The record is a 76-nucleotide RNA from Ornithorhynchus anatinus, which matches "mir-190 microRNA precursor family" in Rfam. NCBI's taxonomy places the organism under Eukaryota, Chordata, Gnathostomata, Ornithorhynchidae, Ornithorhynchus. For this family Rfam cites "Cloning and expression of new microRNAs from zebrafish" (Kloosterman et al., Nucleic Acids Res, 2006). Rfam 15.1 lists 1,667 matches to the family in 854 species. Rfam's curators put it in the seed alignment. The base pairs follow the family's consensus structure, which was predicted with RNAalifold.

Nucleotides: 076
Base pairs, nucleotide, nucleotide: 005072006071007070008069009068011065012064013063014062015061016060017059018058019057020056021055022054023053024052025051027049028048030046031045
Number, partner (000 for none) and nucleotide at each position: 001000a002000c003000c004000u005072c006071u007070g008069u009068g010000u011065g012064a013063u014062a015061u016060g017059u018058u019057u020056g021055a022054u023053a024052u025051u026000a027049g028048g029000u030046u031045g032000u033000u034000a035000c036000g037000c038000u039000a040000g041000a042000c043000c044000u045031c046030a047000c048028c049027u050000g051025a052024a053023u054022a055021u056020c057019a058018g059017a060016c061015a062014u063013a064012u065011u066000c067000c068009u069008a070007c071006a072005g073000c074000g075000g076000c